[Rfam]
mir-454 microRNA precursor family: a 69-nucleotide RNA from Cyprinus carpio. Rfam's curators put it in the seed alignment. Rfam links the family to the GO terms miRNA-mediated post-transcriptional gene silencing and RISC complex. The source organism's lineage runs through Eukaryota, Metazoa, Bilateria, Craniata and Cyprinus. A reference for the family is Berezikov et al. (2006), "Many novel mammalian microRNA candidates identified by extensive cloning and RAKE analysis", Genome Res. Rfam 15.1 lists 696 matches to the family in 601 species.

RNA sequence: GGGACCCUAUCAGUAUUGCCUCUGCUGUCCACUGUGUUCAGAGUAGUGCAAUAUUGCUAAUAGGGUUUC
Numbered sequence: 001g002g003g004a005c006c007c008u009a010u011c012a013g014u015a016u017u018g019c020c021u022c023u024g025c026u027g028u029c030c031a032c033u034g035u036g037u038u039c040a041g042a043g044u045a046g047u048g049c050a051a052u053a054u055u056g057c058u059a060a061u062a063g064g065g066u067u068u069c
Stems, first nucleotide, its partner, number of pairs: 001069010011056009022046004026041001